[Rfam]
Nucleotides: 054
Base pairs, nucleotide, nucleotide: 013043014041015040016039020036021035022034023033025031
Number, partner (000 for none) and nucleotide at each position: 001000u002000g003000c004000a005000c006000u007000c008000a009000c010000u011000a012000c013043u014041g015040u016039a017000a018000g019000u020036c021035a022034c023033u024000c025031u026000g027000g028000a029000u030000a031025a032000u033023a034022g035021u036020g037000u038000c039016u040015g041014c042000u043013a044000a045000u046000u047000g048000a049000c050000a051000a052000a053000u054000g
The family of this 54-nucleotide sequence from Hucho hucho is "UnaL2 LINE 3' element".
The match comes from Rfam's covariance-model search (56 bits).